[Rfam]
The record is a 309-nucleotide RNA, which matches "RAGATH-15 RNA" in Rfam. The literature on the family includes a 2015 paper in Nat Chem Biol by Weinberg et al., "New classes of self-cleaving ribozymes revealed by comparative genomics analysis". It is annotated as a small RNA. Rfam's curators put it in the seed alignment.

RNA sequence: AGGGUAGCUCCCUAUUCUUGGUGAAGGUAAACCGAGAGUACAUAUAUCUGUAUGUAUAAUUUCCACAUGUAAGUAGAUAAUGCACUAUCUUAUACAUGGAUGGGACACUAAUAAUUACACAGUUAGUGCAAGACUAAAUUUCCACACAUGGGUUGUAUAUGUGGAAAGCUAAUAGUUAGAUUUAAACAGGAAGAAAUACACAAAUGUUUGAAUCCCAAUAUAAAAAUCCUGGUAUUUCAGGUACACUGAGGUGCAAAUCAGUGUUGGGUACUCAUCUAUACUUGGAUAUAAAUAUAUCCGAGCGGAAAA
Numbered sequence: 001a002g003g004g005u006a007g008c009u010c011c012c013u014a015u016u017c018u019u020g021g022u023g024a025a026g027g028u029a030a031a032c033c034g035a036g037a038g039u040a041c042a043u044a045u046a047u048c049u050g051u052a053u054g055u056a057u058a059a060u061u062u063c064c065a066c067a068u069g070u071a072a073g074u075a076g077a078u079a080a081u082g083c084a085c086u087a088u089c090u091u092a093u094a095c096a097u098g099g100a101u102g103g104g105a106c107a108c109u110a111a112u113a114a115u116u117a118c119a120c121a122g123u124u125a126g127u128g129c130a131a132g133a134c135u136a137a138a139u140u141u142c143c144a145c146a147c148a149u150g151g152g153u154u155g156u157a158u159a160u161g162u163g164g165a166a167a168g169c170u171a172a173u174a175g176u177u178a179g180a181u182u183u184a185a186a187c188a189g190g191a192a193g194a195a196a197u198a199c200a201c202a203a204a205u206g207u208u209u210g211a212a213u214c215c216c217a218a219u220a221u222a223a224a225a226a227u228c229c230u231g232g233u234a235u236u237u238c239a240g241g242u243a244c245a246c247u248g249a250g251g252u253g254c255a256a257a258u259c260a261g262u263g264u265u266g267g268g269u270a271c272u273c274a275u276c277u278a279u280a281c282u283u284g285g286a287u288a289u290a291a292a293u294a295u296a297u298c299c300g301a302g303c304g305g306a307a308a309a
Stems, first nucleotide, its partner, number of pairs: 001013004016037007038057007067097005075090003102216004106128007133176004139167008148158002181212008228241004243264007281302009